[Rfam]
RNA sequence: GAGGGUGGCCGUGACUGGCGCAGGUGGAUCACCACCGGGGAGCGGUCUAGCAGUGCCUUCGACGCCGCCCGCCUGGGUGUGGGGC
Numbered sequence: 001g002a003g004g005g006u007g008g009c010c011g012u013g014a015c016u017g018g019c020g021c022a023g024g025u026g027g028a029u030c031a032c033c034a035c036c037g038g039g040g041a042g043c044g045g046u047c048u049a050g051c052a053g054u055g056c057c058u059u060c061g062a063c064g065c066c067g068c069c070c071g072c073c074u075g076g077g078u079g080u081g082g083g084g085c
Stems, first nucleotide, its partner, number of pairs: 003051001007047006015039002017073004024035004062080005
RNA: ZMP/ZTP riboswitch aptamer (pfl RNA motif)